[Rfam]
RNA sequence: UACAAUGUUUUCUAGGGUUCCGCAGAGUGAAUAUGCUUUGGCUGGUCCAAGAGAGAACACACGGUUCCAGAAGCCGUGCACACGGAGGGACAAAAGCCCGGGAGGA
Numbered sequence: 001u002a003c004a005a006u007g008u009u010u011u012c013u014a015g016g017g018u019u020c021c022g023c024a025g026a027g028u029g030a031a032u033a034u035g036c037u038u039u040g041g042c043u044g045g046u047c048c049a050a051g052a053g054a055g056a057a058c059a060c061a062c063g064g065u066u067c068c069a070g071a072a073g074c075c076g077u078g079c080a081c082a083c084g085g086a087g088g089g090a091c092a093a094a095a096g097c098c099c100g101g102g103a104g105g106a
Stems, first nucleotide, its partner, number of pairs: 007058006015048002020045002022042001023040006060078007081101001083104001087099003
RNA: Guanidine-I riboswitch aptamer
Organism: Paenibacillus sp. GP183